RNA sequence: AACAAAUGAAGACAGGCUAAGUGCGCAACGGCCUGUUGCAACGCCUGCCUGACCUGCAUCCUGCAUG
Number, nucleotide and partner (000 for none) at each position: 001a000002a000003c000004a000005a000006a000007u000008g000009a000010a000011g049012a000013c047014a046015g045016g044017c043018u000019a000020a000021g000022u000023g000024c000025g039026c038027a037028a036029c035030g000031g000032c000033c000034u000035g029036u028037u027038g026039c025040a000041a000042c000043g017044c016045c015046u014047g013048c000049c011050u000051g000052a000053c067054c000055u065056g064057c063058a000059u000060c000061c000062u000063g057064c056065a055066u000067g053